U12 minor spliceosomal RNA: a 141-nucleotide RNA from Chara braunii. The match comes from Rfam's covariance-model search (63 bits). Gene Ontology terms of the family: U12 snRNP, mRNA branch site recognition and pre-mRNA branch point binding. The pairing is the family consensus, mapped onto this sequence. The family has 62 seed sequences and 2,106 matches in Rfam 15.1.

RNA sequence: UAGCCUUAAGCUAACGAGUAAGGAAAAUAACGUGGCGGCGCGAGACCUGCCACACACCGUAGUGCGUACUUUUUGCUGGGGUACAGGCUAGUAGGGAGCUGACACUGCCUACUCUGCAGGACUCUCCCGAGCAGGCCUCCC
Numbered sequence: 001u002a003g004c005c006u007u008a009a010g011c012u013a014a015c016g017a018g019u020a021a022g023g024a025a026a027a028u029a030a031c032g033u034g035g036c037g038g039c040g041c042g043a044g045a046c047c048u049g050c051c052a053c054a055c056a057c058c059g060u061a062g063u064g065c066g067u068a069c070u071u072u073u074u075g076c077u078g079g080g081g082u083a084c085a086g087g088c089u090a091g092u093a094g095g096g097a098g099c100u101g102a103c104a105c106u107g108c109c110u111a112c113u114c115u116g117c118a119g120g121a122c123u124c125u126c127c128c129g130a131g132c133a134g135g136c137c138u139c140c141c
Stems, first nucleotide, its partner, number of pairs: 004023005032053007055064003080141002085138005091132001096126003105119004